Rfam assigns this 76-nucleotide sequence from Flavobacterium sp. 123 to the family "Flavo-1 RNA". The family has 201 seed sequences and 7,497 matches in Rfam 15.1. A search with the family's covariance model found it, with a score of 70 bits. By type it is a small RNA. Taxonomically the source falls in Flavobacterium (Bacteria, Pseudomonadati, Bacteroidota, Flavobacteriales).
RNA sequence: UCCUAGCCCUGAUAGAAACGGCAUCCUUUUGUGACUGGGUUAGGCGCAAAAGAUAGAGUGAAUAGCAGGAAAUAGC
Numbered sequence: 001u002c003c004u005a006g007c008c009c010u011g012a013u014a015g016a017a018a019c020g021g022c023a024u025c026c027u028u029u030u031g032u033g034a035c036u037g038g039g040u041u042a043g044g045c046g047c048a049a050a051a052g053a054u055a056g057a058g059u060g061a062a063u064a065g066c067a068g069g070a071a072a073u074a075g076c
Base pairs, nucleotide, nucleotide: 009068010067011066013064014063018059019058023054024053025052029049030048031047032046033045035043036042